This 91-nucleotide RNA sequence from Aneurinibacillus migulanus belongs to the Rfam family "Glycine riboswitch aptamer".
RNA sequence: AUGAAGGCAGAGGGAGAGAACGCGCUGGGCGCGUCGCCGAAGGAGCAAGCACACCUUUUAAUCUCUCAGGCAAAAGUACUUCUGCGGGACG
Numbered sequence: 001a002u003g004a005a006g007g008c009a010g011a012g013g014g015a016g017a018g019a020a021c022g023c024g025c026u027g028g029g030c031g032c033g034u035c036g037c038c039g040a041a042g043g044a045g046c047a048a049g050c051a052c053a054c055c056u057u058u059u060a061a062u063c064u065c066u067c068a069g070g071c072a073a074a075a076g077u078a079c080u081u082c083u084g085c086g087g088g089a090c091g
Stems, first nucleotide, its partner, number of pairs: 007085007020034004036071003039067002043065003049058001